[Rfam]
RNA sequence: AUGACAGCAGGGGGAGAGAACGGCUACGCCGUCGCCGAAGGAGCAAGCGCAUCAGCGUGAAUCUCUCAGGCAAAGCAGACUCCUGUUGGACG
Numbered sequence: 001a002u003g004a005c006a007g008c009a010g011g012g013g014g015a016g017a018g019a020a021c022g023g024c025u026a027c028g029c030c031g032u033c034g035c036c037g038a039a040g041g042a043g044c045a046a047g048c049g050c051a052u053c054a055g056c057g058u059g060a061a062u063c064u065c066u067c068a069g070g071c072a073a074a075g076c077a078g079a080c081u082c083c084u085g086u087u088g089g090a091c092g
Stems, first nucleotide, its partner, number of pairs: 006087008020032004034071003037067002041065003047058002
RNA: Glycine riboswitch aptamer
Organism: Alkalicoccus daliensis